The family of this 86-nucleotide RNA from Cytobacillus horneckiae is "c-di-GMP-I riboswitch aptamer". The source organism's lineage runs through Bacteria, Bacillati, Bacillota, Bacilli and Cytobacillus.
[Rfam]
RNA sequence: UCUUGUAUUGGGCAAAUUUUACGAAAGUAAAAGACGCAAAGCCACGGGCCUAAAACAUUUGAUGUCAUGGUAGCCGGGUUGCACUU
Numbered sequence: 001u002c003u004u005g006u007a008u009u010g011g012g013c014a015a016a017u018u019u020u021a022c023g024a025a026a027g028u029a030a031a032a033g034a035c036g037c038a039a040a041g042c043c044a045c046g047g048g049c050c051u052a053a054a055a056c057a058u059u060u061g062a063u064g065u066c067a068u069g070g071u072a073g074c075c076g077g078g079u080u081g082c083a084c085u086u
Stems, first nucleotide, its partner, number of pairs: 012037002017032006040080004045076003048071003055065004
GEMM was predicted in a large-scale screen for bacterial structured RNA regulatory elements.